[Rfam]
RNA sequence: CAUGUCAGCGCGCUUUGCUGACGUGGCAACAAAUUGCCUUCAGGAGGGGGUGAUUUGUUACCACGUCAGCAAAAGGCACUGACGUGG
Numbered sequence: 001c002a003u004g005u006c007a008g009c010g011c012g013c014u015u016u017g018c019u020g021a022c023g024u025g026g027c028a029a030c031a032a033a034u035u036g037c038c039u040u041c042a043g044g045a046g047g048g049g050g051u052g053a054u055u056u057g058u059u060a061c062c063a064c065g066u067c068a069g070c071a072a073a074a075g076g077c078a079c080u081g082a083c084g085u086g087g
Stems, first nucleotide, its partner, number of pairs: 001086008010077002014073008023064004028059011040047002